A member of the RNA family "SAM riboswitch aptamer (S box leader)" from Ureibacillus terrenus, 112 nucleotides long. A search with the family's covariance model found it, with a score of 93 bits. The source organism's lineage runs through Bacteria, Bacillota, Bacilli, Caryophanaceae and Ureibacillus.
RNA sequence: CUCUUAUUAAGAGUGGUGGAGGGAAGUGCCCUAUGAAACCCGGCAACCAUCAUAGUUCCAUAUGAUAAGGUGCCAAAUCACGCAAAGUAUUGUUUACUUUGAAAGAUAAGAG
Numbered sequence: 001c002u003c004u005u006a007u008u009a010a011g012a013g014u015g016g017u018g019g020a021g022g023g024a025a026g027u028g029c030c031c032u033a034u035g036a037a038a039c040c041c042g043g044c045a046a047c048c049a050u051c052a053u054a055g056u057u058c059c060a061u062a063u064g065a066u067a068a069g070g071u072g073c074c075a076a077a078u079c080a081c082g083c084a085a086a087g088u089a090u091u092g093u094u095u096a097c098u099u100u101g102a103a104a105g106a107u108a109a110g111a112g
Base pairs, nucleotide, nucleotide: 001112002111003110004109005108006107007106008105013041015040016039017038021031022030023029026081027080028079042074043073044072045071047070048069049066050065051064052063078104083101084100085099086098087097088096